The record is a 78-nucleotide RNA sequence from Schistosoma japonicum, which matches "mir-3492 microRNA precursor family" in Rfam. NCBI's taxonomy places the organism under Eukaryota, Metazoa, Bilateria, Strigeidida, Schistosoma.
RNA sequence: AGCUUUCUAAAUUCGAGCUGAGAUUUUGUCAGACACCGACCCACUAGGGUUGGUGAUGCUUCCAAGAUAAGUGAAGUG
Numbered sequence: 001a002g003c004u005u006u007c008u009a010a011a012u013u014c015g016a017g018c019u020g021a022g023a024u025u026u027u028g029u030c031a032g033a034c035a036c037c038g039a040c041c042c043a044c045u046a047g048g049g050u051u052g053g054u055g056a057u058g059c060u061u062c063c064a065a066g067a068u069a070a071g072u073g074a075a076g077u078g
Stems, first nucleotide, its partner, number of pairs: 002077005008071001011068003017062001020061003024058001026056005
Gene Ontology terms of the family: RISC complex and miRNA-mediated post-transcriptional gene silencing.